The family of this 90-nucleotide RNA from Drosophila melanogaster is "Selenocysteine transfer RNA".
The organism belongs to Sophophora, within Eukaryota.
The base pairs follow the family's consensus structure, which is taken from published work.
Rfam links the family to the GO term triplet codon-amino acid adaptor activity.
[Rfam]
RNA sequence: GCCCCACUGAACUUCGGUGGUCCGGGGUGCGGACUUCAAAUCCGUAGUCGAUUUGCGUCGAAGUGGUUCGAUUCCACCUGGGGGGCGAAU
Dot-bracket structure: (((((.(.(..((((((....))))))((((((.......)))))).(((((....))))).((((.......))))).).)))))....
Numbered sequence: 001g002c003c004c005c006a007c008u009g010a011a012c013u014u015c016g017g018u019g020g021u022c023c024g025g026g027g028u029g030c031g032g033a034c035u036u037c038a039a040a041u042c043c044g045u046a047g048u049c050g051a052u053u054u055g056c057g058u059c060g061a062a063g064u065g066g067u068u069c070g071a072u073u074c075c076a077c078c079u080g081g082g083g084g085g086c087g088a089a090u
Stems, first nucleotide, its partner, number of pairs: 001086005007080001009078001012027006028046006048061005063077004